[Rfam]
RNA sequence: AUAUAUGGUAGAGGUGCAGUUUUCAUGAGUACCGCCGGCAUUAGGGCAGGGCAGCAGCAGGCGGGGAAGGGGACGCUGCCGAAGUGCCGGUUUUUGCUUCAGGGCCGGCGCUGGGCUGCUGCAGAAUAUGCAGCAGACUGUCACAGUUGUGGAGCGCUAUCAUUGGA
Numbered sequence: 001a002u003a004u005a006u007g008g009u010a011g012a013g014g015u016g017c018a019g020u021u022u023u024c025a026u027g028a029g030u031a032c033c034g035c036c037g038g039c040a041u042u043a044g045g046g047c048a049g050g051g052c053a054g055c056a057g058c059a060g061g062c063g064g065g066g067a068a069g070g071g072g073a074c075g076c077u078g079c080c081g082a083a084g085u086g087c088c089g090g091u092u093u094u095u096g097c098u099u100c101a102g103g104g105c106c107g108g109c110g111c112u113g114g115g116c117u118g119c120u121g122c123a124g125a126a127u128a129u130g131c132a133g134c135a136g137a138c139u140g141u142c143a144c145a146g147u148u149g150u151g152g153a154g155c156g157c158u159a160u161c162a163u164u165g166g167a
Base pairs, nucleotide, nucleotide: 006162007161008160009159010158011157016079017078018077019076020075022073023072024071032064033063034062035061036060038058039057083112084111085110086109087108088107089106090105091104092103093102094101113139114138116136117135118134119133120132121131122130123129141152142151143150144149
RNA: Lysine riboswitch aptamer
Organism: Cuneatibacter caecimuris